Rfam assigns this 240-nucleotide RNA from Chloroflexales bacterium ZM16-3 to the family "HNH endonuclease-associated RNA and ORF (HEARO) RNA". By type it is a non-coding RNA gene. Rfam 15.1 lists 952 matches to the family in 249 species. The literature on the family includes a 2009 paper in Nature by Weinberg et al., "Exceptional structured noncoding RNAs revealed by bacterial metagenome analysis".

RNA sequence: GUCAGUAACCCACGGCUAAAGCUCGUGGGCUUGUGGCGCAAUCCAUAAGCCGGUGCUGACCAGACUCAGCCAGAGCCGCAAGGCUAUCGGGCUACGUGUACGGCAAGCGUUCAAGACCUACCGGCGAAUGCGUUUGCCAGUUCGCCGCUCUAGAACCUGGACAUCAUGCUGCGGUGCGGUAAGCCGCGAAGGUGUUCUUGGGAUAGUACCGACCGUACACCUUGUCGAGGCGAACAUUAC
Number, nucleotide and partner (000 for none) at each position: 001g060002u059003c058004a057005g056006u055007a054008a000009c000010c029011c028012a026013c025014g000015g022016c021017u000018a000019a000020a000021g016022c015023u000024c000025g013026u012027g000028g011029g010030c049031u048032u047033g046034u045035g044036g043037c000038g000039c000040a000041a000042u000043c036044c035045a034046u033047a032048a031049g030050c000051c000052g000053g000054u007055g006056c005057u004058g003059a002060c001061c000062a000063g226064a225065c224066u000067c000068a093069g092070c091071c090072a000073g000074a000075g000076c000077c000078g000079c000080a000081a000082g000083g000084c000085u000086a000087u000088c000089g000090g071091g070092c069093u068094a000095c000096g220097u219098g218099u217100a216101c215102g000103g000104c000105a000106a000107g000108c000109g214110u000111u212112c211113a000114a000115g000116a000117c000118c153119u152120a000121c000122c147123g146124g145125c144126g143127a142128a141129u140130g000131c000132g000133u233134u232135u000136g000137c230138c229139a000140g129141u128142u127143c126144g125145c124146c123147g122148c000149u000150c000151u000152a119153g118154a000155a000156c202157c201158u200159g199160g196161a195162c194163a193164u192165c191166a000167u000168g000169c188170u000171g187172c186173g185174g184175u183176g000177c000178g000179g000180u000181a000182a000183g175184c174185c173186g172187c171188g169189a000190a000191g165192g164193u163194g162195u161196u160197c000198u000199u159200g158201g157202g156203a000204u000205a000206g000207u000208a000209c000210c000211g112212a111213c000214c109215g101216u100217a099218c098219a097220c096221c000222u000223u000224g065225u064226c063227g000228a000229g138230g137231c000232g134233a133234a000235c000236a000237u000238u000239a000240c000